[Rfam]
The record is a 173-nucleotide RNA from Caulobacter mirabilis, which matches "caulobacter sRNA CC3513" in Rfam. It is annotated as a small RNA. The organism belongs to Caulobacter, within Bacteria. On this family, see Landt et al., Mol Microbiol 2008: "Small non-coding RNAs in Caulobacter crescentus". The match comes from Rfam's covariance-model search (41 bits). Pairs were carried over by alignment from the consensus structure.
RNA sequence: AUCCGCGUCGGGCGGGGUCGGAGGGAGUGCGCCUUGGCUCUAGGCCGCGCGAACCCGUUCCGUCCCGCGAGGGAAGGCGUGGUGGUGCGCGUGGUGAUGGUGCGAGACGCGGGUCAUCGGAGCGGGCCUAUAGCGCAGGACAGGCGCGGCGGCUAGCGGCAGAAGCUGUUCAU
Numbered sequence: 001a002u003c004c005g006c007g008u009c010g011g012g013c014g015g016g017g018u019c020g021g022a023g024g025g026a027g028u029g030c031g032c033c034u035u036g037g038c039u040c041u042a043g044g045c046c047g048c049g050c051g052a053a054c055c056c057g058u059u060c061c062g063u064c065c066c067g068c069g070a071g072g073g074a075a076g077g078c079g080u081g082g083u084g085g086u087g088c089g090c091g092u093g094g095u096g097a098u099g100g101u102g103c104g105a106g107a108c109g110c111g112g113g114u115c116a117u118c119g120g121a122g123c124g125g126g127c128c129u130a131u132a133g134c135g136c137a138g139g140a141c142a143g144g145c146g147c148g149g150c151g152g153c154u155a156g157c158g159g160c161a162g163a164a165g166c167u168g169u170u171c172a173u
Stems, first nucleotide, its partner, number of pairs: 002016005017160004021060003025056001027054002030051003035047002065152002068149001072145001079136001081134001085131003089127002092125001094123001097117005103111002